[Rfam]
RNA sequence: AUACUUACCUGGCAGGGGAGAUACCAUGAUCAAGAAGGUGGUUCACCCAGGGCGAGGCUUAACCAUUGCACUCGGUUAUGCUGACCCCGCGCAUGUGGGAAUUCCCCAAAUGUGGGGGAAUCUCCCGACUGCAUAAUUUUGGUCAGAAUGUGGGGACUUUGGAGUCAGUCAGUA
Numbered sequence: 001a002u003a004c005u006u007a008c009c010u011g012g013c014a015g016g017g018g019a020g021a022u023a024c025c026a027u028g029a030u031c032a033a034g035a036a037g038g039u040g041g042u043u044c045a046c047c048c049a050g051g052g053c054g055a056g057g058c059u060u061a062a063c064c065a066u067u068g069c070a071c072u073c074g075g076u077u078a079u080g081c082u083g084a085c086c087c088c089g090c091g092c093a094u095g096u097g098g099g100a101a102u103u104c105c106c107c108a109a110a111u112g113u114g115g116g117g118g119a120a121u122c123u124c125c126c127g128a129c130u131g132c133a134u135a136a137u138u139u140u141g142g143u144c145a146g147a148a149u150g151u152g153g154g155g156a157c158u159u160u161g162g163a164g165u166c167a168g169u170c171a172g173u174a
Stems, first nucleotide, its partner, number of pairs: 012132004016048003020044002023042005050088003054085001056082003060078005098125003101121001102119002105115002147173001149171002155166004
The record is a 174-nucleotide RNA from Perca flavescens, which matches "U1 spliceosomal RNA" in Rfam. The family has 100 seed sequences and 40,184 matches in Rfam 15.1. The organism belongs to Perca, within Eukaryota. From the family's description: U1 is a small nuclear RNA (snRNA) component of the spliceosome (involved in pre-mRNA splicing). By type it is a spliceosomal small nuclear RNA.